[Rfam]
RNA sequence: CGUGGGGUGCAGGGGAACUUCCAUCGGGGAAGUUGAGAGAGGCGCAACGCCUGACCCUUUGAACCUGUUUGGGUAACGCCAUCGUAGGGAGUCAACAUAUGUCCAAGG
Numbered sequence: 001c002g003u004g005g006g007g008u009g010c011a012g013g014g015g016a017a018c019u020u021c022c023a024u025c026g027g028g029g030a031a032g033u034u035g036a037g038a039g040a041g042g043c044g045c046a047a048c049g050c051c052u053g054a055c056c057c058u059u060u061g062a063a064c065c066u067g068u069u070u071g072g073g074u075a076a077c078g079c080c081a082u083c084g085u086a087g088g089g090a091g092u093c094a095a096c097a098u099a100u101g102u103c104c105a106a107g108g
Stems, first nucleotide, its partner, number of pairs: 006096001008094002011058004017033005040052005064088004070081003

The family of this 108-nucleotide sequence from Bifidobacterium italicum is "TPP riboswitch aptamer (THI element)". Gene Ontology term of the family: thiamine pyrophosphate binding. NCBI's taxonomy places the organism under Bacteria, Bacillati, Bifidobacteriales, Bifidobacteriaceae, Bifidobacterium.